RNA sequence: GUGGGCUACGGCGACGUGGCGCCCAAGACCUAUCCGGGCAUGUUUGUCGGUGCCCUCUGUGCCCUCGCCGGUGUCUUGACCAUUGCCCUGCCGGUGCCAGUUAUCGUCAGCAAC
Numbered sequence: 001g002u003g004g005g006c007u008a009c010g011g012c013g014a015c016g017u018g019g020c021g022c023c024c025a026a027g028a029c030c031u032a033u034c035c036g037g038g039c040a041u042g043u044u045u046g047u048c049g050g051u052g053c054c055c056u057c058u059g060u061g062c063c064c065u066c067g068c069c070g071g072u073g074u075c076u077u078g079a080c081c082a083u084u085g086c087c088c089u090g091c092c093g094g095u096g097c098c099a100g101u102u103a104u105c106g107u108c109a110g111c112a113a114c
Stems, first nucleotide, its partner, number of pairs: 001114002004111001008107004013102003018097001021095002037077002040074001049063003